[Rfam]
RNA sequence: GAUAGGGUUUACACCCUAUCUUGUUUUGUGUCGUCCUUGCAGGACU
Numbered sequence: 001g002a003u004a005g006g007g008u009u010u011a012c013a014c015c016c017u018a019u020c021u022u023g024u025u026u027u028g029u030g031u032c033g034u035c036c037u038u039g040c041a042g043g044a045c046u
Stems, first nucleotide, its partner, number of pairs: 001020008033045005
Rfam assigns this 46-nucleotide RNA from Taibaiella lutea to the family "Acido-Lenti-1 RNA". The family's RNA type in Rfam is small RNA. Lineage of the source: Bacteria > Pseudomonadati > Chitinophagia > Chitinophagales > Taibaiella.